RNA sequence: CUUGACCGAACCGAGCCACAGCGGAUGCUCGCGUUCCCCGCCGUAAGCGGCGAGCAAGGCCUGUGCCUC
Numbered sequence: 001c002u003u004g005a006c007c008g009a010a011c012c013g014a015g016c017c018a019c020a021g022c023g024g025a026u027g028c029u030c031g032c033g034u035u036c037c038c039c040g041c042c043g044u045a046a047g048c049g050g051c052g053a054g055c056a057a058g059g060c061c062u063g064u065g066c067c068u069c
Base pairs, nucleotide, nucleotide: 014026016024017023028065030063032059037054039052041050042049043048
Dot-bracket structure: .............(.((.....)).).(.(.(....(.(.(((....))).).)....)...).)....